[Rfam]
This 110-nucleotide sequence from Streptomyces sp. SID7982 belongs to the Rfam family "Streptomyces RNA 4115". Rfam describes the family as follows. Identified by deep sequencing of transcriptome at the end of exponential growth phase. Sequencing size consistent with notrthern blot size. Streptomyces specific. By type it is a small RNA.

RNA sequence: GCGUGGGUCGGCCCGCUGACACCGCGUUCAGUGGGCUGGGGGACACCGUCGCCUUCAUCCCCGCGGGCGACGGCCCGGUCCGGGAGGCUCUCGGCGCCUCCCGGACCGCA
Numbered sequence: 001g002c003g004u005g006g007g008u009c010g011g012c013c014c015g016c017u018g019a020c021a022c023c024g025c026g027u028u029c030a031g032u033g034g035g036c037u038g039g040g041g042g043a044c045a046c047c048g049u050c051g052c053c054u055u056c057a058u059c060c061c062c063g064c065g066g067g068c069g070a071c072g073g074c075c076c077g078g079u080c081c082g083g084g085a086g087g088c089u090c091u092c093g094g095c096g097c098c099u100c101c102c103g104g105a106c107c108g109c110a
Stems, first nucleotide, its partner, number of pairs: 001109002006076002009038010039044001046073009056063001077107012